skipping-rope RNA: a 78-nucleotide sequence. It is annotated as a small RNA.
RNA sequence: GAAAAUAGAGGACGGAACGGGCAGCCGUCGCCCCCGAAAGGGAUAGGAGAUGUGGGAAAUGUCACCCCACCUAUUUUU
Numbered sequence: 001g002a003a004a005a006u007a008g009a010g011g012a013c014g015g016a017a018c019g020g021g022c023a024g025c026c027g028u029c030g031c032c033c034c035c036g037a038a039a040g041g042g043a044u045a046g047g048a049g050a051u052g053u054g055g056g057a058a059a060u061g062u063c064a065c066c067c068c069a070c071c072u073a074u075u076u077u078u
Stems, first nucleotide, its partner, number of pairs: 001078008011029005020063004031047001032041002052070005